[Rfam]
RNA: Alphaproteobacteria transfer-messenger RNA
Organism: Devosia enhydra
RNA sequence: CCCAUUGCAUCCGCGCUGGCGGCUCCCUAUAUUCCGCGUGCCGGCAACGGCUAUGGCGAUAAAUUGCCAUCGUAAUAAACCCAUCGGACCCGGGGGCAGUGCCCGGCGCCUCCACCAAUCCCUGUCGCUGGCAGGGCCAUGGGGGCGAAACAGGCUCGACGAGGGCGUAAAGGGUGUGUUUUCGCUCGGCAUGGUACCGCCGAUAUCGGACCAAACUUAUAGUUGCCAACGACAACUAUGCUGGGCGUCGUCUCCUCGCUGCUUAAGCGAGUCGACACACCCGAUCUAAAGCCCUGCCGUUCUAGCAGGCGGUAGGCGGGGUUCGCAGGCACCUGGCAACAGAAGCCUGCACU
Numbered sequence: 001c002c003c004a005u006u007g008c009a010u011c012c013g014c015g016c017u018g019g020c021g022g023c024u025c026c027c028u029a030u031a032u033u034c035c036g037c038g039u040g041c042c043g044g045c046a047a048c049g050g051c052u053a054u055g056g057c058g059a060u061a062a063a064u065u066g067c068c069a070u071c072g073u074a075a076u077a078a079a080c081c082c083a084u085c086g087g088a089c090c091c092g093g094g095g096g097c098a099g100u101g102c103c104c105g106g107c108g109c110c111u112c113c114a115c116c117a118a119u120c121c122c123u124g125u126c127g128c129u130g131g132c133a134g135g136g137c138c139a140u141g142g143g144g145g146c147g148a149a150a151c152a153g154g155c156u157c158g159a160c161g162a163g164g165g166c167g168u169a170a171a172g173g174g175u176g177u178g179u180u181u182u183c184g185c186u187c188g189g190c191a192u193g194g195u196a197c198c199g200c201c202g203a204u205a206u207c208g209g210a211c212c213a214a215a216c217u218u219a220u221a222g223u224u225g226c227c228a229a230c231g232a233c234a235a236c237u238a239u240g241c242u243g244g245g246c247g248u249c250g251u252c253u254c255c256u257c258g259c260u261g262c263u264u265a266a267g268c269g270a271g272u273c274g275a276c277a278c279a280c281c282c283g284a285u286c287u288a289a290a291g292c293c294c295u296g297c298c299g300u301u302c303u304a305g306c307a308g309g310c311g312g313u314a315g316g317c318g319g320g321g322u323u324c325g326c327a328g329g330c331a332c333c334u335g336g337c338a339a340c341a342g343a344a345g346c347c348u349g350c351a352c353u
Base pairs, nucleotide, nucleotide: 040051041050042049043048055186056185057184058183059182066179067178068176069175070174071173080165081164082163084162085161086160090106091105092104093103094102107147108146109145110144111143112142113141187202188201189200190199192213193212194211197209198208319334320333321332322331325350326349327348328347329346330345